[Rfam]
RNA: Group I catalytic intron
RNA sequence: CAAGCGGCGUAAAAGGAGUCCGCUAGUGGGACGGAUCGUUACUAGCUGACGGACCGGCCCGCGACACCGUCAAAUUGCGGGGAGUCCCUAAAGCUUAUACUACUAAGCGGUUGCCGAAAGGGAUCCGUGGCCGAGGUAAUGACCUAGGGAACAGUAAAAACGUACAAGAUGUUACAAUGGGUAAUCCGCAGCCAAGCUCUAAGUCGGUCCCGAGAUGUCAAGACUCGGGGCGGAUAUGGGUGCAGUUCAACGACUAAUGGUGGUGGGUUCCGGUAGAAACGCGUCCUGCGUACUCUGCCCGGGCUUAAGAUAUAGUCUGGCCCCCUGUGAAAGCGGGGG
Numbered sequence: 001c002a003a004g005c006g007g008c009g010u011a012a013a014a015g016g017a018g019u020c021c022g023c024u025a026g027u028g029g030g031a032c033g034g035a036u037c038g039u040u041a042c043u044a045g046c047u048g049a050c051g052g053a054c055c056g057g058c059c060c061g062c063g064a065c066a067c068c069g070u071c072a073a074a075u076u077g078c079g080g081g082g083a084g085u086c087c088c089u090a091a092a093g094c095u096u097a098u099a100c101u102a103c104u105a106a107g108c109g110g111u112u113g114c115c116g117a118a119a120g121g122g123a124u125c126c127g128u129g130g131c132c133g134a135g136g137u138a139a140u141g142a143c144c145u146a147g148g149g150a151a152c153a154g155u156a157a158a159a160a161c162g163u164a165c166a167a168g169a170u171g172u173u174a175c176a177a178u179g180g181g182u183a184a185u186c187c188g189c190a191g192c193c194a195a196g197c198u199c200u201a202a203g204u205c206g207g208u209c210c211c212g213a214g215a216u217g218u219c220a221a222g223a224c225u226c227g228g229g230g231c232g233g234a235u236a237u238g239g240g241u242g243c244a245g246u247u248c249a250a251c252g253a254c255u256a257a258u259g260g261u262g263g264u265g266g267g268u269u270c271c272g273g274u275a276g277a278a279a280c281g282c283g284u285c286c287u288g289c290g291u292a293c294u295c296u297g298c299c300c301g302g303g304c305u306u307a308a309g310a311u312a313u314a315g316u317c318u319g320g321c322c323c324c325c326u327g328u329g330a331a332a333g334c335g336g337g338g339g
Stems, first nucleotide, its partner, number of pairs: 006024004011019001030040004065265005071259002076190006086181003191246002196241004204234002207231008250318001252317005267304004272299006324337005